[Rfam]
RNA sequence: AGACACCCUUCUGGGGCAAGACUUGCUUCAAUGGGGUUUUGGUACUCACUUAGUCUGCCCCCUGAGUGUGUCCCU
Numbered sequence: 001a002g003a004c005a006c007c008c009u010u011c012u013g014g015g016g017c018a019a020g021a022c023u024u025g026c027u028u029c030a031a032u033g034g035g036g037u038u039u040u041g042g043u044a045c046u047c048a049c050u051u052a053g054u055c056u057g058c059c060c061c062c063u064g065a066g067u068g069u070g071u072c073c074c075u
Stems, first nucleotide, its partner, number of pairs: 002072005008066003013061006020055003028052001030050001032048004036043002
RNA: mir-9229 microRNA precursor family
Organism: Myotis lucifugus